[Rfam]
RNA sequence: CAAAUCAUAUGACAACGAUAGAGAGCACGCUUGUACACAUCUAUGUCCUUACAUAAAUGGAAACAAGCGUGCUCUCUCUCAUUGUCAUUUGAUA
Numbered sequence: 001c002a003a004a005u006c007a008u009a010u011g012a013c014a015a016c017g018a019u020a021g022a023g024a025g026c027a028c029g030c031u032u033g034u035a036c037a038c039a040u041c042u043a044u045g046u047c048c049u050u051a052c053a054u055a056a057a058u059g060g061a062a063a064c065a066a067g068c069g070u071g072c073u074c075u076c077u078c079u080c081a082u083u084g085u086c087a088u089u090u091g092a093u094a
Stems, first nucleotide, its partner, number of pairs: 010087005017080001020077002023074001025072010